[Rfam]
A member of the RNA family "Group II catalytic intron D1-D4-3" from Neorhodopirellula pilleata, 171 nucleotides long. A search with the family's covariance model found it, with a score of 56 bits.
RNA sequence: AAGUCAGCAAAGAAUCGUCGCUGGCACACGUUCUCGCUAAAACUGCGAGGUGACGAACAGAAACGUCGUGGAGGCAGGCGGAUGUUGAUGCGAGUAGCCCUGGGACCGCAAAGCCGUUUUCCGACAACUUCCGCUUGUAGGCGACGCACUUGCGCAGCGAAAGUUCACGUC
Numbered sequence: 001a002a003g004u005c006a007g008c009a010a011a012g013a014a015u016c017g018u019c020g021c022u023g024g025c026a027c028a029c030g031u032u033c034u035c036g037c038u039a040a041a042a043c044u045g046c047g048a049g050g051u052g053a054c055g056a057a058c059a060g061a062a063a064c065g066u067c068g069u070g071g072a073g074g075c076a077g078g079c080g081g082a083u084g085u086u087g088a089u090g091c092g093a094g095u096a097g098c099c100c101u102g103g104g105a106c107c108g109c110a111a112a113g114c115c116g117u118u119u120u121c122c123g124a125c126a127a128c129u130u131c132c133g134c135u136u137g138u139a140g141g142c143g144a145c146g147c148a149c150u151u152g153c154g155c156a157g158c159g160a161a162a163g164u165u166c167a168c169g170u171c
Stems, first nucleotide, its partner, number of pairs: 002015001004013002028170004036164002043157005048151005064146005074138003078134005084128001090114002094109002097106001
NCBI's taxonomy places the organism under Bacteria, Planctomycetia, Pirellulales, Pirellulaceae, Neorhodopirellula. Rfam links the family to the GO term Group II intron splicing.